[Rfam]
RNA: Small nucleolar RNA SNORD113/SNORD114 family
Organism: Mustela putorius
RNA sequence: UGGGUCUGUGAUAGCUGCCGGCGUAUGAAUCACGGAUGAUGAACGAUGCGUGUCUGGAAUUCUGAGGUCCAC
Dot-bracket structure: .(((((...........................................................)))))..